[Rfam]
RNA sequence: CUACAAUGAUGGCAAUAUUUUCCAUCAACAUCAAUUCACCUAGUGAGUGUUGAUACUUUGGGUCUGAGUUA
Numbered sequence: 001c002u003a004c005a006a007u008g009a010u011g012g013c014a015a016u017a018u019u020u021u022c023c024a025u026c027a028a029c030a031u032c033a034a035u036u037c038a039c040c041u042a043g044u045g046a047g048u049g050u051u052g053a054u055a056c057u058u059u060g061g062g063u064c065u066g067a068g069u070u071a
Base pairs, nucleotide, nucleotide: 003069004068008026009025010024011023
Small nucleolar RNA SNORD56: a 71-nucleotide RNA sequence from Leptonychotes weddellii. Lineage of the source: Eukaryota > Metazoa > Gnathostomata > Tetrapoda > Leptonychotes. The family has 7 seed sequences and 796 matches in Rfam 15.1. By type it is a C/D-box small nucleolar RNA. Its family is annotated with RNA processing and nucleolus in the Gene Ontology. It scores 86 bits against the family's covariance model.